[Rfam]
RNA sequence: AAGGUUUUGAAAAACUGACCUAAGACAGCAGGGGAGCGUGCUCAUAAUAUUCCUGCCGAGGCACAAAACGUAAACUGAAAAAACGUAUUGUACUUUCGUGUCUGGGUUUGGGUGCGAUUUUUUAUUGCAUUC
Number, nucleotide and partner (000 for none) at each position: 001a000002a000003g000004g000005u000006u000007u000008u000009g000010a000011a000012a000013a000014a000015c000016u000017g000018a000019c000020c000021u000022a000023a000024g000025a000026c000027a000028g056029c055030a054031g053032g052033g051034g043035a042036g041037c000038g000039u000040g000041c036042u035043c034044a000045u000046a000047a000048u000049a000050u000051u033052c032053c031054u030055g029056c028057c000058g000059a000060g000061g000062c000063a000064c000065a000066a000067a000068a000069c000070g000071u000072a000073a000074a000075c000076u000077g000078a000079a000080a000081a000082a000083a000084c000085g000086u000087a000088u000089u000090g000091u000092a000093c000094u000095u000096u117097c116098g115099u114100g113101u112102c111103u110104g109105g000106g000107u000108u000109u104110g103111g102112g101113u100114g099115c098116g097117a096118u000119u000120u000121u000122u000123u000124a000125u000126u000127g000128c000129a000130u000131u000132c000

Shown here is a 132-nucleotide RNA from Streptococcus mutans, a member of the family "Ribosomal protein L10 leader". Rfam classes the family as a cis-regulatory leader. Its family is annotated with regulation of gene expression in the Gene Ontology. About the family: This family is a putative r-protein leader autoregulatory structure found in B. subtilis and other low-GC Gram-positive bacteria. It is located in the 5' untranslated regions of mRNAs encoding ribosomal proteins L10 and L12 (rplJ-rplL). A Rho-independent transcription terminator structure that is probably involved in regulation is included at the 3' end. The sequence is in the family's curated seed alignment. The source organism's lineage runs through Bacteria, Bacillati, Bacilli, Streptococcaceae and Streptococcus mutans.